The family of this 82-nucleotide RNA sequence from Methylococcus capsulatus is "SAH (S-adenosyl-L-homocysteine) riboswitch aptamer".
Rfam 15.1 lists 1,354 matches to the family in 1,132 species.
Nucleotides: 082
Stems, first nucleotide, its partner, number of pairs: 002048006020036006
Number, partner (000 for none) and nucleotide at each position: 001000g002048c003047g004046c005045c006044g007043a008000g009000g010000a011000g012000c013000g014000c015000u016000g017000c018000g019000a020036c021035g022034g023033c024032c025031c026000g027000u028000c029000g030000a031025g032024g033023g034022c035021c036020g037000c038000c039000a040000g041000g042000c043007u044006c045005g046004g047003c048002g049000g050000g051000g052000a053000c054000a055000a056000u057000c058000g059000g060000u061000u062000u063000u064000c065000c066000a067000a068000c069000g070000g071000c072000g073000c074000u075000c076000u077000g078000u079000u080000u081000a082000u